[Rfam]
RNA sequence: CCCCCAAGGGGAAGCGAAGACCCUAUAGAGCUUUACUGCAGGCUGUCGCUGGGACAUGGCCGCUGAUGUGCAGCAUAGGUAGGAGUCAUUACCCAGGCGUCCGCUGCUAGCGGACCGCCGAGACAUCAGUGAAAUACUACCCGUCAGUGGCUGUGACCCUCACUCCGGGAGGAAGACACCGAUAGCCAGGCAGUUUGACUGGGGCGGUACGCGCUCGAAACAAUAUCGAGCGCGCCCUAAGACCAUCUCAUCCGGGUCAGGAAUCCGGAGAAGAGCGCAAGAGCAAAAGAUGGUUUGACAGUGUCCUGCCUAACGAGGGACGCUGACGCGAAAGCGUGGUCUAGCGAACCCAUUAGUCCCGCUUGAUGCGGGCAAUGGCUGACAGAAAAGCUACCUUAGGGAUAACAGAGUCGUCACCGGCAAGAGUACAUAUCGACCCGGUGGCUUGCUACCUCGAUGUCGGUUCCCUCCAUCCUGCCCGUGCAGCAUCGGGCAAGGGUGAGGUUGUUCGCCUAUUAAAGGAGGUCGUGAGCUGGGUUUAGACCGUCGUGAGACAGGUCGGCUGCUAUCUAUUGGGGGUGUU
Numbered sequence: 001c002c003c004c005c006a007a008g009g010g011g012a013a014g015c016g017a018a019g020a021c022c023c024u025a026u027a028g029a030g031c032u033u034u035a036c037u038g039c040a041g042g043c044u045g046u047c048g049c050u051g052g053g054a055c056a057u058g059g060c061c062g063c064u065g066a067u068g069u070g071c072a073g074c075a076u077a078g079g080u081a082g083g084a085g086u087c088a089u090u091a092c093c094c095a096g097g098c099g100u101c102c103g104c105u106g107c108u109a110g111c112g113g114a115c116c117g118c119c120g121a122g123a124c125a126u127c128a129g130u131g132a133a134a135u136a137c138u139a140c141c142c143g144u145c146a147g148u149g150g151c152u153g154u155g156a157c158c159c160u161c162a163c164u165c166c167g168g169g170a171g172g173a174a175g176a177c178a179c180c181g182a183u184a185g186c187c188a189g190g191c192a193g194u195u196u197g198a199c200u201g202g203g204g205c206g207g208u209a210c211g212c213g214c215u216c217g218a219a220a221c222a223a224u225a226u227c228g229a230g231c232g233c234g235c236c237c238u239a240a241g242a243c244c245a246u247c248u249c250a251u252c253c254g255g256g257u258c259a260g261g262a263a264u265c266c267g268g269a270g271a272a273g274a275g276c277g278c279a280a281g282a283g284c285a286a287a288a289g290a291u292g293g294u295u296u297g298a299c300a301g302u303g304u305c306c307u308g309c310c311u312a313a314c315g316a317g318g319g320a321c322g323c324u325g326a327c328g329c330g331a332a333a334g335c336g337u338g339g340u341c342u343a344g345c346g347a348a349c350c351c352a353u354u355a356g357u358c359c360c361g362c363u364u365g366a367u368g369c370g371g372g373c374a375a376u377g378g379c380u381g382a383c384a385g386a387a388a389a390g391c392u393a394c395c396u397u398a399g400g401g402a403u404a405a406c407a408g409a410g411u412c413g414u415c416a417c418c419g420g421c422a423a424g425a426g427u428a429c430a431u432a433u434c435g436a437c438c439c440g441g442u443g444g445c446u447u448g449c450u451a452c453c454u455c456g457a458u459g460u461c462g463g464u465u466c467c468c469u470c471c472a473u474c475c476u477g478c479c480c481g482u483g484c485a486g487c488a489u490c491g492g493g494c495a496a497g498g499g500u501g502a503g504g505u506u507g508u509u510c511g512c513c514u515a516u517u518a519a520a521g522g523a524g525g526u527c528g529u530g531a532g533c534u535g536g537g538u539u540u541a542g543a544c545c546g547u548c549g550u551g552a553g554a555c556a557g558g559u560c561g562g563c564u565g566c567u568a569u570c571u572a573u574u575g576g577g578g579g580u581g582u583u
Base pairs, nucleotide, nucleotide: 001579002578003577004576005575006574007573010571011570012569014566015565022400023399024398025397027396028395029392030391031390032389033388035194036193037192038191042186043185044184045183046182047181048180051159052158053157055155056154057153058152059151060150061149062148063147064146065145066144067143068142078141079140080139081138082137085124086123087122100114101113102112103111104110164173165172166171197210198208199207200206211233212232213231214230215229216228236339237338242294243293244292245291246290247289248274249273251269252268253267254266255265256264275284276283299325300324301323302322303321304320305319306318307317327336329334350378351377352376353375354374356373358372359371360370361369409450410449411448413447414444415443416442417441418440419439420438424434425433461536462534463533464532465531466528467525468524469523470522471521474499475498478493479492480491481490502514503513504512505511542560543559544558545557546555547554548553
A member of the RNA family "Archaeal large subunit ribosomal RNA" from Halocatena salina, 583 nucleotides of a longer RNA. NCBI's taxonomy places the organism under Archaea, Methanobacteriota, Halobacteria, Halobacteriales, Halocatena. The family's consensus secondary structure is taken from published work. Gene Ontology terms of the family: ribosome and structural constituent of ribosome.